[Rfam]
RNA sequence: GCCAGUGAUGAAAUCGCCCAAACGUAUUGAGGCUGCAGUCGGCUCCAAGUUCCUGCUCGUCAGGAAGAACCUACUUGGGGCCCUGCACUCGCGUGAAAGCACCGGGCAAAUCUGAGAU
Numbered sequence: 001g002c003c004a005g006u007g008a009u010g011a012a013a014u015c016g017c018c019c020a021a022a023c024g025u026a027u028u029g030a031g032g033c034u035g036c037a038g039u040c041g042g043c044u045c046c047a048a049g050u051u052c053c054u055g056c057u058c059g060u061c062a063g064g065a066a067g068a069a070c071c072u073a074c075u076u077g078g079g080g081c082c083c084u085g086c087a088c089u090c091g092c093g094u095g096a097a098a099g100c101a102c103c104g105g106g107c108a109a110a111u112c113u114g115a116g117a118u
Stems, first nucleotide, its partner, number of pairs: 001118001003116001051065005
Shown here is a 118-nucleotide RNA from Paspalum vaginatum, a member of the family "Small nucleolar RNA Z278". A search with the family's covariance model found it, with a score of 59 bits. Lineage of the source: Eukaryota > Streptophytina > Petrosaviidae > commelinids > Paspalum. Rfam links the family to the GO terms RNA processing and nucleolus. The base pairs follow the family's consensus structure, which was predicted with PFOLD.